[Rfam]
RNA sequence: GGUUGUCUGAGGGGAAGUCGCCCCUAGUACGAGAGGAACAGGGCGGCGAAGCCUCUGGUUUAUCAGCUGUCCGACAGGGCAUGCUGAGCAGCUAAGCUUCUUAGGAUAAGUCCUGAAAGCAUCUAAGGACGAAGCCUUUCCCGAGAAAAGACAGCCUUCCGUAAGGAGAAGGGCGGCCAUAGAAGAUGGCGUUGAUGGGAUGGAGGUGUAAGCACCAAGCUUCGGCGAGGUGUUCAGCCUGCCAUCACCAACAGCCCAACGC
Numbered sequence: 001g002g003u004u005g006u007c008u009g010a011g012g013g014g015a016a017g018u019c020g021c022c023c024c025u026a027g028u029a030c031g032a033g034a035g036g037a038a039c040a041g042g043g044c045g046g047c048g049a050a051g052c053c054u055c056u057g058g059u060u061u062a063u064c065a066g067c068u069g070u071c072c073g074a075c076a077g078g079g080c081a082u083g084c085u086g087a088g089c090a091g092c093u094a095a096g097c098u099u100c101u102u103a104g105g106a107u108a109a110g111u112c113c114u115g116a117a118a119g120c121a122u123c124u125a126a127g128g129a130c131g132a133a134g135c136c137u138u139u140c141c142c143g144a145g146a147a148a149a150g151a152c153a154g155c156c157u158u159c160c161g162u163a164a165g166g167a168g169a170a171g172g173g174c175g176g177c178c179a180u181a182g183a184a185g186a187u188g189g190c191g192u193u194g195a196u197g198g199g200a201u202g203g204a205g206g207u208g209u210a211a212g213c214a215c216c217a218a219g220c221u222u223c224g225g226c227g228a229g230g231u232g233u234u235c236a237g238c239c240u241g242c243c244a245u246c247a248c249c250a251a252c253a254g255c256c257c258a259a260c261g262c
Base pairs, nucleotide, nucleotide: 001156002155003154004153005152006151007150008149011142012141013140014139017047018046019045020044021043022042023041048100049099050098051097052096056094057093058092063087064086065085066084067083068081069080070079071078072077103137104136105135110130111129112128113127114126171257172256173255174254176190177189178188179187196250197249198248199246200245201244202243203242204240205239206238212233213232214231215230216229219226
RNA: Archaeal large subunit ribosomal RNA, nucleotides 2701 to 2962